[Rfam]
Nucleotides: 129
Base pairs, nucleotide, nucleotide: 005125006124007123008122009120010119011118012117019074020073021072022071076109077108078107079105080104083103084102085101090095
Number, partner (000 for none) and nucleotide at each position: 001000g002000c003000u004000a005125g006124a007123u008122g009120u010119c011118a012117g013000g014000a015000g016000a017000g018000u019074a020073u021072u022071g023000c024000g025000g026000c027000a028000a029000u030000u031000u032000u033000u034000g035000u036000u037000u038000g039000u040000c041000u042000g043000g044000u045000c046000a047000g048000u049000c050000a051000a052000u053000g054000a055000u056000c057000g058000g059000g060000c061000a062000u063000a064000u065000c066000g067000c068000u069000g070000g071022c072021a073020a074019u075000c076109a077108c078107c079105g080104a081000a082000g083103g084102c085101g086000u087000a088000a089000a090095a091000a092000c093000c094000c095090u096000a097000c098000a099000a100000u101085c102084g103083c104080u105079c106000a107078g108077g109076u110000u111000c112000a113000u114000g115000g116000a117012c118011u119010g120009a121000a122008c123007a124006u125005c126000a127000c128000g129000c
A member of the RNA family "Glycine riboswitch aptamer" from Faucicola atlantae, 129 nucleotides long. The match comes from Rfam's covariance-model search (44 bits). NCBI's taxonomy places the organism under Bacteria, Pseudomonadati, Pseudomonadota, Gammaproteobacteria, Faucicola.